[Rfam]
RNA sequence: GAGAAUGUUGUUAAAGGCAGCAUCAGCGUUAGGGCAUAAAUUAAUGCUAAAGUACUGGAAAACAAUCUUUUAAUAACCAUAGCGAUCUCCUCGGAUCCAAGGCCAUGAAUCAGCCACUUUUUUGUAUUUUUUUAUAAUGCAAUUUAAGUGCCAGCGGCUAAACUUUUAAGACAACCACUCUAACGGAUUAACCGCUUUUCCUUUUUGUCUUAUCUCAAAGUAUAGACCGUUUUGCUUGAUUCCACCGCUGUGACCG
Numbered sequence: 001g002a003g004a005a006u007g008u009u010g011u012u013a014a015a016g017g018c019a020g021c022a023u024c025a026g027c028g029u030u031a032g033g034g035c036a037u038a039a040a041u042u043a044a045u046g047c048u049a050a051a052g053u054a055c056u057g058g059a060a061a062a063c064a065a066u067c068u069u070u071u072a073a074u075a076a077c078c079a080u081a082g083c084g085a086u087c088u089c090c091u092c093g094g095a096u097c098c099a100a101g102g103c104c105a106u107g108a109a110u111c112a113g114c115c116a117c118u119u120u121u122u123u124g125u126a127u128u129u130u131u132u133u134a135u136a137a138u139g140c141a142a143u144u145u146a147a148g149u150g151c152c153a154g155c156g157g158c159u160a161a162a163c164u165u166u167u168a169a170g171a172c173a174a175c176c177a178c179u180c181u182a183a184c185g186g187a188u189u190a191a192c193c194g195c196u197u198u199u200c201c202u203u204u205u206u207g208u209c210u211u212a213u214c215u216c217a218a219a220g221u222a223u224a225g226a227c228c229g230u231u232u233u234g235c236u237u238g239a240u241u242c243c244a245c246c247g248c249u250g251u252g253a254c255c256g
Base pairs, nucleotide, nucleotide: 001200002199003198004197005196007195008194010192011191012190013189014188016104017103018102020098022096023095024094026092028090033048034047035046036045037044050071051070052069054066056064106168107167108166109165110161112159113158114157115156118154119153124151125150126149127148128147129146169181170180171179203220204219205218206217207216226249228247229246233244234243